[Rfam]
Nucleotides: 111
Base pairs, nucleotide, nucleotide: 007057008056010054011053012052015047016046020044021043022041023039024038025037026036027035028034058084059083060082061081062080063079064078065077066076067075086106088109092104093103094102
Number, partner (000 for none) and nucleotide at each position: 001000c002000g003000a004000g005000u006000u007057a008056g009000c010054c011053g012052c013000u014000a015047g016046g017000g018000u019000u020044c021043c022041g023039g024038c025037c026036u027035c028034c029000u030000g031000c032000c033000a034028g035027g036026a037025g038024g039023c040000g041022c042000u043021g044020g045000u046016c047015c048000g049000a050000g051000a052012g053011c054010g055000a056008c057007u058084g059083c060082u061081u062080g063079c064078g065077a066076g067075g068000g069000a070000c071000a072000a073000a074000u075067c076066c077065u078064c079063g080062c081061a082060g083059g084058u085000g086106c087000a088109c089000g090000g091000c092104g093103g094102g095000a096000c097000a098000a099000a100000a101000g102094c103093c104092c105000g106086g107000g108000a109088g110000a111000c